[Rfam]
RNA sequence: UACCCAAUUUGCCACAGCCGUCGUGAGGCGGCGUCGGAAAGCCUAGGGUCUGGUUAGGAUGCCAGAUAGCCGGGCCGCCUCC
Numbered sequence: 001u002a003c004c005c006a007a008u009u010u011g012c013c014a015c016a017g018c019c020g021u022c023g024u025g026a027g028g029c030g031g032c033g034u035c036g037g038a039a040a041g042c043c044u045a046g047g048g049u050c051u052g053g054u055u056a057g058g059a060u061g062c063c064a065g066a067u068a069g070c071c072g073g074g075c076c077g078c079c080u081c082c
Stems, first nucleotide, its partner, number of pairs: 012037002017032006041075003046071002048067007

Description
This 82-nucleotide RNA from Methylomonas methanica belongs to the Rfam family "c-di-GMP-I riboswitch aptamer". The base pairs follow the family's consensus structure, which is taken from published work. From the family's description: GEMM was predicted in a large-scale screen for bacterial structured RNA regulatory elements.